[Rfam]
RNA sequence: GAGAGUUAGGGAGGGAGUUGCGGAUUCCUGUCACAGGGAAUCUGAGGAAAGUCCGGGCUUCCCAAAGGCCAAACUUGCUGGGUAACGCCCAGUGCGCGCGAGCGUGAGGACAGUGCCACAGAAAAAUACCGCCCUUUUUAGAAAACAGCAACCAGUAAACAGUUAACAGGGUUUUUCUGCUGACUAACUGGUAACUGACCACUGAAAAGGGUAAGGGUGCAAAGGUGCGGUAAGAGCGCACCAGCAGUAUCGAGAGGUACUGGCUCGGUAAACCCCGGUUGGAAGCAAGGUCGGAGGGGCAAAGGUUGGUCUUUUUCCUGCCCCAUGAUUGGUGGAACCGCUUGAGGAAUUUGGUAACAAAUUUCCCAGAUAGAUAACUCCCCAAGGGUGCCUCGCAUCCUGGAACAGAACCCGGCUUACGACUAACUCUCUUUU
Numbered sequence: 001g002a003g004a005g006u007u008a009g010g011g012a013g014g015g016a017g018u019u020g021c022g023g024a025u026u027c028c029u030g031u032c033a034c035a036g037g038g039a040a041u042c043u044g045a046g047g048a049a050a051g052u053c054c055g056g057g058c059u060u061c062c063c064a065a066a067g068g069c070c071a072a073a074c075u076u077g078c079u080g081g082g083u084a085a086c087g088c089c090c091a092g093u094g095c096g097c098g099c100g101a102g103c104g105u106g107a108g109g110a111c112a113g114u115g116c117c118a119c120a121g122a123a124a125a126a127u128a129c130c131g132c133c134c135u136u137u138u139u140a141g142a143a144a145a146c147a148g149c150a151a152c153c154a155g156u157a158a159a160c161a162g163u164u165a166a167c168a169g170g171g172u173u174u175u176u177c178u179g180c181u182g183a184c185u186a187a188c189u190g191g192u193a194a195c196u197g198a199c200c201a202c203u204g205a206a207a208a209g210g211g212u213a214a215g216g217g218u219g220c221a222a223a224g225g226u227g228c229g230g231u232a233a234g235a236g237c238g239c240a241c242c243a244g245c246a247g248u249a250u251c252g253a254g255a256g257g258u259a260c261u262g263g264c265u266c267g268g269u270a271a272a273c274c275c276c277g278g279u280u281g282g283a284a285g286c287a288a289g290g291u292c293g294g295a296g297g298g299g300c301a302a303a304g305g306u307u308g309g310u311c312u313u314u315u316u317c318c319u320g321c322c323c324c325a326u327g328a329u330u331g332g333u334g335g336a337a338c339c340g341c342u343u344g345a346g347g348a349a350u351u352u353g354g355u356a357a358c359a360a361a362u363u364u365c366c367c368a369g370a371u372a373g374a375u376a377a378c379u380c381c382c383c384a385a386g387g388g389u390g391c392c393u394c395g396c397a398u399c400c401u402g403g404a405a406c407a408g409a410a411c412c413c414g415g416c417u418u419a420c421g422a423c424u425a426a427c428u429c430u431c432u433u434u435u
Stems, first nucleotide, its partner, number of pairs: 001431009011420001013382007021044009049418003053415005058285004067317002072280003076277002078092005093107001094105004108275002113273002115269003129216002131212011224242006244264001245262007289339003292335001299329001302326001304324001308322003346365008
The family of this 435-nucleotide sequence from Synechocystis sp. is "Bacterial RNase P class A". Taxonomically the source falls in Synechocystis (Bacteria, Cyanobacteriota, Cyanophyceae, Merismopediaceae). Rfam classes the family as a ribozyme.